RNA sequence: AGCCAUGUGGUAAGCACAAAGCGAACUAUUCUUUCGCCUUUUACUAAAGAAUACCGUGUGCUUGCCAUAUUUAGUGGCAUACGCCUAUUUUUGGAGAGUCCCUUUUGUUAGGGCUC
Numbered sequence: 001a002g003c004c005a006u007g008u009g010g011u012a013a014g015c016a017c018a019a020a021g022c023g024a025a026c027u028a029u030u031c032u033u034u035c036g037c038c039u040u041u042u043a044c045u046a047a048a049g050a051a052u053a054c055c056g057u058g059u060g061c062u063u064g065c066c067a068u069a070u071u072u073a074g075u076g077g078c079a080u081a082c083g084c085c086u087a088u089u090u091u092u093g094g095a096g097a098g099u100c101c102c103u104u105u106u107g108u109u110a111g112g113g114c115u116c
Stems, first nucleotide, its partner, number of pairs: 003077004008067011027053008097115005